The record is a 36-nucleotide sequence from Sciurus vulgaris, which matches "XIST RNA A repeat" in Rfam. The family's consensus secondary structure was predicted with CMfinder. The family has 54 seed sequences and 900 matches in Rfam 15.1. Rfam classes the family as a small RNA. Taxonomically the source falls in Sciurus (Eukaryota, Chordata, Euarchontoglires, Rodentia).
RNA sequence: UAGCCCAUCGGGGCCACGGAUACCUGCCAUUUUUUU
Numbered sequence: 001u002a003g004c005c006c007a008u009c010g011g012g013g014c015c016a017c018g019g020a021u022a023c024c025u026g027c028c029a030u031u032u033u034u035u036u
Stems, first nucleotide, its partner, number of pairs: 003014004017026003